[Rfam]
RNA sequence: AUACUUACCUGGACGGGGUCUAUAGGUGAUCAAGAAGGCCUAUGGCCUAGCUCAGUGGCCUCCAUUGCACUUAGGAGGAGCACUGACUUACCAUCUCCCCAAGUGAGAGAGUGGACGUCAUAAUUUGUGAUAGAGGGGGCCUGCGUUCGCGCGGCCCCUGC
Numbered sequence: 001a002u003a004c005u006u007a008c009c010u011g012g013a014c015g016g017g018g019u020c021u022a023u024a025g026g027u028g029a030u031c032a033a034g035a036a037g038g039c040c041u042a043u044g045g046c047c048u049a050g051c052u053c054a055g056u057g058g059c060c061u062c063c064a065u066u067g068c069a070c071u072u073a074g075g076a077g078g079a080g081c082a083c084u085g086a087c088u089u090a091c092c093a094u095c096u097c098c099c100c101a102a103g104u105g106a107g108a109g110a111g112u113g114g115a116c117g118u119c120a121u122a123a124u125u126u127g128u129g130a131u132a133g134a135g136g137g138g139g140c141c142u143g144c145g146u147u148c149g150c151g152c153g154g155c156c157c158c159u160g161c
Stems, first nucleotide, its partner, number of pairs: 012119004016048005023042005049088002053085001059078005091114003094110003099105001135159004142153004
This 161-nucleotide RNA sequence from Camphora micrantha belongs to the Rfam family "U1 spliceosomal RNA". The family's consensus secondary structure is taken from published work. Rfam's curators write: U1 is a small nuclear RNA (snRNA) component of the spliceosome (involved in pre-mRNA splicing). Rfam 15.1 lists 40,184 matches to the family in 1,499 species. The source organism's lineage runs through Eukaryota, Viridiplantae, Euphyllophyta, Spermatophyta and Camphora. A search with the family's covariance model found it, with a score of 133 bits.